Glycine riboswitch aptamer: a 117-nucleotide RNA sequence from Gordonia polyisoprenivorans. Its family is annotated with glycine biosynthetic process in the Gene Ontology. Lineage of the source: Bacteria > Actinomycetota > Mycobacteriales > Gordonia > Gordonia polyisoprenivorans.
RNA sequence: CGCUGCAUCACGGGAGAGCGUCGCCGCCCACGCCUCGGAUACGAGGUCACGCGGUGACCGCCGAAGGAGCAAUACCUCUCCGUCAAACUCUCAGGCACCCUGGACCGUGAUGGACGA
Numbered sequence: 001c002g003c004u005g006c007a008u009c010a011c012g013g014g015a016g017a018g019c020g021u022c023g024c025c026g027c028c029c030a031c032g033c034c035u036c037g038g039a040u041a042c043g044a045g046g047u048c049a050c051g052c053g054g055u056g057a058c059c060g061c062c063g064a065a066g067g068a069g070c071a072a073u074a075c076c077u078c079u080c081c082g083u084c085a086a087a088c089u090c091u092c093a094g095g096c097a098c099c100c101u102g103g104a105c106c107g108u109g110a111u112g113g114a115c116g117a
Stems, first nucleotide, its partner, number of pairs: 006112008020058008060096003063092002067090003074083002

It scores 57 bits against the family's covariance model.